Shown here is a 100-nucleotide sequence from Oceanotoga teriensis, a member of the family "Bacterial small signal recognition particle RNA". The family's RNA type in Rfam is non-coding RNA gene. NCBI's taxonomy places the organism under Bacteria, Thermotogati, Thermotogae, Petrotogales, Oceanotoga. Clan: SRP clan.
[Rfam]
RNA sequence: GGCUGGGUCCUGCGCAACGAAAACUAGUGAAACUGGUCAGGCCCGGAAGGGAGCAGCCAUAAGCUUUGUCUUUUGUGUGCCGCAGGGAAGCUCAGCCACC
Numbered sequence: 001g002g003c004u005g006g007g008u009c010c011u012g013c014g015c016a017a018c019g020a021a022a023a024c025u026a027g028u029g030a031a032a033c034u035g036g037u038c039a040g041g042c043c044c045g046g047a048a049g050g051g052a053g054c055a056g057c058c059a060u061a062a063g064c065u066u067u068g069u070c071u072u073u074u075g076u077g078u079g080c081c082g083c084a085g086g087g088a089a090g091c092u093c094a095g096c097c098a099c100c
Stems, first nucleotide, its partner, number of pairs: 004094005009086006015077001017076006026065003034059004042051003